[Rfam]
RNA: Iron response element II
RNA sequence: ACCAUAUCAUAGUCAGUGAACUAUAUAUGUC
Numbered sequence: 001a002c003c004a005u006a007u008c009a010u011a012g013u014c015a016g017u018g019a020a021c022u023a024u025a026u027a028u029g030u031c
Stems, first nucleotide, its partner, number of pairs: 003029005009024005014018001